[Rfam]
Annotation:
Shown here is a 77-nucleotide RNA from Alligator sinensis, a member of the family "Mammalian CPEB3 ribozyme". The family's consensus secondary structure is taken from published work. The match comes from Rfam's covariance-model search (49 bits). Rfam's curators write: The mammalian CPEB3 ribozyme is a self cleaving RNA located in the second intron of the CPEB3 gene which belongs to a family of genes regulating messenger RNA polyadenylation. This ribozyme is highly conserved and found only in mammals. The CPEB3 ribozyme is structurally and biochemically related to the human hepatitis delta virus (HDV) ribozyme and the HDV ribozyme is proposed to have arisen from the human transcriptome.
RNA sequence: GUUGCAAGUUCAUUGGCUAUAGCAGAAGCAUUCACAGUGUGGCCCUGUCAGAUUCCUGUGUAUCUGCAAAUUUUGCU
Numbered sequence: 001g002u003u004g005c006a007a008g009u010u011c012a013u014u015g016g017c018u019a020u021a022g023c024a025g026a027a028g029c030a031u032u033c034a035c036a037g038u039g040u041g042g043c044c045c046u047g048u049c050a051g052a053u054u055c056c057u058g059u060g061u062a063u064c065u066g067c068a069a070a071u072u073u074u075g076c077u
Stems, first nucleotide, its partner, number of pairs: 015044004021077007028040003049066005055060001